[Rfam]
RNA: Small nucleolar RNA Z105
Organism: Papaver nudicaule
RNA sequence: GGGUUGUGAUGAUGAACCUAGUUAUUCCAACUAAAUUAUAUGAAUAGACAAACAGCCUCCUACUAAUUCUGA
Numbered sequence: 001g002g003g004u005u006g007u008g009a010u011g012a013u014g015a016a017c018c019u020a021g022u023u024a025u026u027c028c029a030a031c032u033a034a035a036u037u038a039u040a041u042g043a044a045u046a047g048a049c050a051a052a053c054a055g056c057c058u059c060c061u062a063c064u065a066a067u068u069c070u071g072a
Stems, first nucleotide, its partner, number of pairs: 006067002009064001028047001031042001